[Rfam]
RNA sequence: UGUACGGACCGGGCCCCUCUGGCGAGUGCAUAUGUGCUCGUGAUGUCGGACGUACGU
Numbered sequence: 001u002g003u004a005c006g007g008a009c010c011g012g013g014c015c016c017c018u019c020u021g022g023c024g025a026g027u028g029c030a031u032a033u034g035u036g037c038u039c040g041u042g043a044u045g046u047c048g049g050a051c052g053u054a055c056g057u
Stems, first nucleotide, its partner, number of pairs: 007051001009049004022041008

Shown here is a 57-nucleotide RNA sequence from Erythrobacter aureus, a member of the family "terC RNA". The family has 129 seed sequences and 1,112 matches in Rfam 15.1.